[Rfam]
RNA sequence: GCUCGAUGAUGAUUGCUUUGAGACUGAGCAGACUGUAGUUGGUCCUUGGUUUGCUUGGCUGAUGUAACCUUGUUUCAAGACGGGGCUGAGAGCAGU
Numbered sequence: 001g002c003u004c005g006a007u008g009a010u011g012a013u014u015g016c017u018u019u020g021a022g023a024c025u026g027a028g029c030a031g032a033c034u035g036u037a038g039u040u041g042g043u044c045c046u047u048g049g050u051u052u053g054c055u056u057g058g059c060u061g062a063u064g065u066a067a068c069c070u071u072g073u074u075u076c077a078a079g080a081c082g083g084g085g086c087u088g089a090g091a092g093c094a095g096u
Stems, first nucleotide, its partner, number of pairs: 001093004

The family of this 96-nucleotide RNA sequence from Synaphobranchus kaupii is "Small nucleolar RNA SNORD21". For this family Rfam cites "SnoRNA U21 is also intron-encoded in Drosophila melanogaster but in a different host-gene as compared to warm-blooded vertebrates" (Renalier et al., FEBS Lett, 1996). The family's consensus secondary structure was predicted with PFOLD. It is annotated as a C/D-box small nucleolar RNA.